Annotation: A member of the RNA family "raiA RNA" from Marinisporobacter balticus, 208 nucleotides long. Rfam classes the family as a riboswitch.

RNA sequence: ACGGUUUAGGUCUGUGGUUGCAAGUCCAUGCCAGUCGCAGGCAAAAGGAUCCACGUAAGGUAGUUUUAAAAAAGAAACUAGUGAGCAUGGUGCGGCUUAGAGGUAAGACCUGCCAGUAAAAAACUGAGAGAAUCAGUAGUGAUGGUAACCCCAGAGCGAAAGUUCCAGCAGGCGAGUGUGGGGUCAAAGACCAGGUCAGCUAAACAUG
Numbered sequence: 001a002c003g004g005u006u007u008a009g010g011u012c013u014g015u016g017g018u019u020g021c022a023a024g025u026c027c028a029u030g031c032c033a034g035u036c037g038c039a040g041g042c043a044a045a046a047g048g049a050u051c052c053a054c055g056u057a058a059g060g061u062a063g064u065u066u067u068a069a070a071a072a073a074g075a076a077a078c079u080a081g082u083g084a085g086c087a088u089g090g091u092g093c094g095g096c097u098u099a100g101a102g103g104u105a106a107g108a109c110c111u112g113c114c115a116g117u118a119a120a121a122a123a124c125u126g127a128g129a130g131a132a133u134c135a136g137u138a139g140u141g142a143u144g145g146u147a148a149c150c151c152c153a154g155a156g157c158g159a160a161a162g163u164u165c166c167a168g169c170a171g172g173c174g175a176g177u178g179u180g181g182g183g184u185c186a187a188a189g190a191c192c193a194g195g196u197c198a199g200c201u202a203a204a205c206a207u208g
Stems, first nucleotide, its partner, number of pairs: 004205006012199003015193005028179003031041001033097007050090002058082001061080007088186001109172005114126004130165004139157002